[Rfam]
RNA sequence: AGCUUUGGGGAAUAUCGCCACACACGUAUCGACACAGUUUCCAGGGUGCCGCUCGCGGUUGGAUGCUGGGAUACGUGGAGGUUUAAC
Dot-bracket structure: ......................((((((((....((((.((((....((((....)))))))).)))).))))))))..........
This 87-nucleotide sequence from Marinobacterium aestuarii belongs to the Rfam family "t44 RNA". From the family's description: This family consists of a number of bacterial RNA genes of between 135 and 170 bases in length. The t44 gene has been identified in several species of enteric bacteria but homologs have also been identified in Pseudomonas and Coxiella species. The t44 gene is found between the map and rpsB genes in all species in the full alignment apart from Shigella flexneri. The function of this RNA is unknown. Rfam classes the family as a small RNA.